Record summary: Shown here is a 90-nucleotide RNA sequence from Pristionchus pacificus, a member of the family "mir-2237 microRNA precursor family". Rfam links the family to the GO terms miRNA-mediated post-transcriptional gene silencing and RISC complex. Pairs were carried over by alignment from the consensus structure, which was predicted with RNAalifold.

RNA sequence: GGAUCGGUGCCAGGUACCCGUAAAUUCUCGGACAGUUCGUAUAUGUAAGCGCACUGCCCAGAAUUUUCGGGUUCCUGGCUAAGAUAUCCG
Numbered sequence: 001g002g003a004u005c006g007g008u009g010c011c012a013g014g015u016a017c018c019c020g021u022a023a024a025u026u027c028u029c030g031g032a033c034a035g036u037u038c039g040u041a042u043a044u045g046u047a048a049g050c051g052c053a054c055u056g057c058c059c060a061g062a063a064u065u066u067u068c069g070g071g072u073u074c075c076u077g078g079c080u081a082a083g084a085u086a087u088c089c090g
Stems, first nucleotide, its partner, number of pairs: 001088002003085003009079005016072005025063004030059002033056004038051003